[Rfam]
RNA sequence: UCUGGCUACCUGACCUGUCCAUUGUGGAAGGUAUUACAUUCUCGCUGAUUUCAGGAGCUAUUGAUUAUGCGUA
Numbered sequence: 001u002c003u004g005g006c007u008a009c010c011u012g013a014c015c016u017g018u019c020c021a022u023u024g025u026g027g028a029a030g031g032u033a034u035u036a037c038a039u040u041c042u043c044g045c046u047g048a049u050u051u052c053a054g055g056a057g058c059u060a061u062u063g064a065u066u067a068u069g070c071g072u073a
Base pairs, nucleotide, nucleotide: 013032014031015030016029018028019027020026037063038062041057042056043055045054046053047052